[Rfam]
RNA: L17 ribosomal protein downstream element
RNA sequence: AGAGUGUUAUGAUGUUGGAAAUAUUUUUUUCCGAGUCUAGCUCAGCACUGCUCCCUGAAUUAUCAGGGAGC
Numbered sequence: 001a002g003a004g005u006g007u008u009a010u011g012a013u014g015u016u017g018g019a020a021a022u023a024u025u026u027u028u029u030u031c032c033g034a035g036u037c038u039a040g041c042u043c044a045g046c047a048c049u050g051c052u053c054c055c056u057g058a059a060u061u062a063u064c065a066g067g068g069a070g071c
Stems, first nucleotide, its partner, number of pairs: 002043004011037003017032005050071009